[Rfam]
RNA sequence: UAAAGUGUUAAUCCUCCCCUAUUGAAAUCAAUGGGAUGCCUGCCACUGACUUCAAUAGGAGUAGGAUGACACUAUA
Numbered sequence: 001u002a003a004a005g006u007g008u009u010a011a012u013c014c015u016c017c018c019c020u021a022u023u024g025a026a027a028u029c030a031a032u033g034g035g036a037u038g039c040c041u042g043c044c045a046c047u048g049a050c051u052u053c054a055a056u057a058g059g060a061g062u063a064g065g066a067u068g069a070c071a072c073u074a075u076a
Base pairs, nucleotide, nucleotide: 002075004073006071007070008069009068010067012065013064016061018059019058020057022054024053025052026051028049029048030047032045033044034043

Annotation: mir-1677 microRNA precursor family: a 76-nucleotide RNA sequence from Anolis carolinensis. Rfam's curators put it in the seed alignment. Pairs were carried over by alignment from the consensus structure, which was predicted with RNAalifold.